[Rfam]
RNA sequence: CGCAUGGGGUCAAUUGCGAACACCCCGUGAGGCGUCAGCCCAAGUGUCGCAUGUUUCCCUUGUUUAAAGGAUGCAUGCUUAUG
Number, nucleotide and partner (000 for none) at each position: 001c000002g000003c000004a000005u027006g026007g025008g024009g023010u022011c000012a000013a000014u000015u000016g000017c000018g000019a000020a000021c000022a010023c009024c008025c007026c006027g005028u000029g000030a000031g000032g000033c000034g000035u000036c000037a000038g000039c000040c000041c000042a000043a000044g000045u000046g000047u000048c000049g078050c077051a076052u075053g074054u073055u000056u000057c000058c000059c000060u000061u000062g000063u000064u000065u000066a000067a000068a000069g000070g000071a000072u000073g054074c053075a052076u051077g050078c049079u000080u000081a000082u000083g000
chrB-a RNA: an 83-nucleotide RNA sequence from Ascidiaceihabitans donghaensis. Rfam classes the family as a cis-regulatory element. NCBI's taxonomy places the organism under Bacteria, Pseudomonadota, Rhodobacterales, Paracoccaceae, Ascidiaceihabitans.